[Rfam]
RNA sequence: CGGUCCAUCGGGACCUCGGAUACCUGCGUUUAGUCUU
Numbered sequence: 001c002g003g004u005c006c007a008u009c010g011g012g013a014c015c016u017c018g019g020a021u022a023c024c025u026g027c028g029u030u031u032a033g034u035c036u037u
Stems, first nucleotide, its partner, number of pairs: 003014004017026003
Rfam assigns this 37-nucleotide RNA to the family "XIST RNA A repeat". The family's RNA type in Rfam is small RNA. On this family, see Duszczyk et al., RNA 2011: "The Xist RNA A-repeat comprises a novel AUCG tetraloop fold and a platform for multimerization".